[Rfam]
Shown here is a 76-nucleotide sequence from Chlamydotis macqueenii, a member of the family "Small nucleolar RNA SNORD47". It is annotated as a C/D-box small nucleolar RNA. For this family Rfam cites "Purified box C/D snoRNPs are able to reproduce site-specific 2'-O-methylation of target RNA in vitro" (Galardi et al., Mol Cell Biol, 2002). NCBI's taxonomy places the organism under Eukaryota, Vertebrata, Amniota, Neognathae, Chlamydotis. Its family is annotated with nucleolus and RNA processing in the Gene Ontology.
RNA sequence: AGCCACUGAUGAAACUAGAUUCUGCCACAUGAGUCACUGUGAUAUUACAAUUUCCGUUCCACUUCUUUCUGAGGUU
Numbered sequence: 001a002g003c004c005a006c007u008g009a010u011g012a013a014a015c016u017a018g019a020u021u022c023u024g025c026c027a028c029a030u031g032a033g034u035c036a037c038u039g040u041g042a043u044a045u046u047a048c049a050a051u052u053u054c055c056g057u058u059c060c061a062c063u064u065c066u067u068u069c070u071g072a073g074g075u076u
Base pairs, nucleotide, nucleotide: 001076002075003074004073